[Rfam]
RNA: mir-16 microRNA precursor family
RNA sequence: CACCAGCAGCAGCGCAGAAGUAAGGGUGGCAUGAUAUGAUAUUGCCACCCUUACUUCUGUGCUGCUGCUGGCG
Numbered sequence: 001c002a003c004c005a006g007c008a009g010c011a012g013c014g015c016a017g018a019a020g021u022a023a024g025g026g027u028g029g030c031a032u033g034a035u036a037u038g039a040u041a042u043u044g045c046c047a048c049c050c051u052u053a054c055u056u057c058u059g060u061g062c063u064g065c066u067g068c069u070g071g072c073g
Stems, first nucleotide, its partner, number of pairs: 003071002008066008017056001019055008
Dot-bracket structure: ..((...((((((((.(.((((((((.....................)))))))))..))))))))...))..